[Rfam]
RNA sequence: GAAGCAAGCCAGACAGCCGCUGGUUGCCCCGGUUUCCGGGGCGGCGGGAGGAAGGUCCGGACUCCAUAGAGCAGGGUAACGGCUAACGGCCGUCCGUCGAAAGCCGCAAGGUAUAAGGCGCGGAACAGGGCCACAGAGACGAGUCUUCGGGACGUCCGGCAUGCCGGCGUCACGAAGGGUGAAACGCGGUAACCUCUAUCCGGAGCAAUUCCAAAUAGGCACGCGAUGAUGCUGCUCGCGGAGCGUGCGGGUAGGAAGCUUGAGCCACGGAGCAAUCCCUGGCCUAGAGGAAUGGCUGUCAUAGCAAGCGGGGGCGACUCCGGGCGCCGUAACAGAAUCCGGCCUAUCGGCUUGCUUCAUUU
Numbered sequence: 001g002a003a004g005c006a007a008g009c010c011a012g013a014c015a016g017c018c019g020c021u022g023g024u025u026g027c028c029c030c031g032g033u034u035u036c037c038g039g040g041g042c043g044g045c046g047g048g049a050g051g052a053a054g055g056u057c058c059g060g061a062c063u064c065c066a067u068a069g070a071g072c073a074g075g076g077u078a079a080c081g082g083c084u085a086a087c088g089g090c091c092g093u094c095c096g097u098c099g100a101a102a103g104c105c106g107c108a109a110g111g112u113a114u115a116a117g118g119c120g121c122g123g124a125a126c127a128g129g130g131c132c133a134c135a136g137a138g139a140c141g142a143g144u145c146u147u148c149g150g151g152a153c154g155u156c157c158g159g160c161a162u163g164c165c166g167g168c169g170u171c172a173c174g175a176a177g178g179g180u181g182a183a184a185c186g187c188g189g190u191a192a193c194c195u196c197u198a199u200c201c202g203g204a205g206c207a208a209u210u211c212c213a214a215a216u217a218g219g220c221a222c223g224c225g226a227u228g229a230u231g232c233u234g235c236u237c238g239c240g241g242a243g244c245g246u247g248c249g250g251g252u253a254g255g256a257a258g259c260u261u262g263a264g265c266c267a268c269g270g271a272g273c274a275a276u277c278c279c280u281g282g283c284c285u286a287g288a289g290g291a292a293u294g295g296c297u298g299u300c301a302u303a304g305c306a307a308g309c310g311g312g313g314g315c316g317a318c319u320c321c322g323g324g325c326g327c328c329g330u331a332a333c334a335g336a337a338u339c340c341g342g343c344c345u346a347u348c349g350g351c352u353u354g355c356u357u358c359a360u361u362u
Base pairs, nucleotide, nucleotide: 001358002357003356004355005354006353007352008351009350010349011347012300013299014298015297016296017295018294020048021047023045024044025043026042027041028040029039030038053345054344055343057342058341059340060339061338062205063204064203065202069237070236071235072234074201075200076199077198078197079093080092081091082090083089094122095120096119097118098117123196124195128194129193130190131189132188145178146177147175148174149173151171152170153169154168155167209257210256211255212254219248220247221246222245223244224243230240231239232238264283265282266281267280269278270277271276

A member of the RNA family "Bacterial RNase P class A" from Noviherbaspirillum galbum, 362 nucleotides long. It is annotated as a ribozyme. NCBI's taxonomy places the organism under Bacteria, Betaproteobacteria, Burkholderiales, Oxalobacteraceae, Noviherbaspirillum. It scores 219 bits against the family's covariance model.